Shown here is a 233-nucleotide RNA from Peribacillus faecalis, a member of the family "T-box leader".
[Rfam]
RNA sequence: AAUGUUGCGAAGACAGGUGUCAGUAGUGAAUCUAUCACUGUAUGCAGAGAGCCGGUGGUUGGUGAAAACCGGAACAUAUAGAUGUCAUGAAUUACUGCCUCGAGCAUUUGCUGGGAACGCUUUUUGAUUUAGUAAGUAGCAGCAAACGGUUUAUAGCCGUUAUUUAUGUGAGCGGAGAAUUUCUUAUUGGGAGUUCUCAAGUUGGGUGGUACCGCGAUUAUUUCGUCCCUUCA
Numbered sequence: 001a002a003u004g005u006u007g008c009g010a011a012g013a014c015a016g017g018u019g020u021c022a023g024u025a026g027u028g029a030a031u032c033u034a035u036c037a038c039u040g041u042a043u044g045c046a047g048a049g050a051g052c053c054g055g056u057g058g059u060u061g062g063u064g065a066a067a068a069c070c071g072g073a074a075c076a077u078a079u080a081g082a083u084g085u086c087a088u089g090a091a092u093u094a095c096u097g098c099c100u101c102g103a104g105c106a107u108u109u110g111c112u113g114g115g116a117a118c119g120c121u122u123u124u125u126g127a128u129u130u131a132g133u134a135a136g137u138a139g140c141a142g143c144a145a146a147c148g149g150u151u152u153a154u155a156g157c158c159g160u161u162a163u164u165u166a167u168g169u170g171a172g173c174g175g176a177g178a179a180u181u182u183c184u185u186a187u188u189g190g191g192a193g194u195u196c197u198c199a200a201g202u203u204g205g206g207u208g209g210u211a212c213c214g215c216g217a218u219u220a221u222u223u224c225g226u227c228c229c230u231u232c233a
Stems, first nucleotide, its partner, number of pairs: 007105002015100004026088004039076003052072005108145006147159003175198009204229003214226004
Taxonomically the source falls in Peribacillus (Bacteria, Bacilli, Caryophanales, Bacillaceae). Uncharged tRNA acts as the effector for transcription antitermination of genes in the T-box leader family. T-boxes are found upstream of many aminoacyl-tRNA synthetase genes and some amino acid biosynthetic genes usually in Gram-positive bacteria. The anticodon of a specific tRNA base pairs to a specifier sequence within the T-box motif, and the NCCA acceptor tail of the tRNA base pairs to a conserved bulge in the T-box antiterminator hairpin.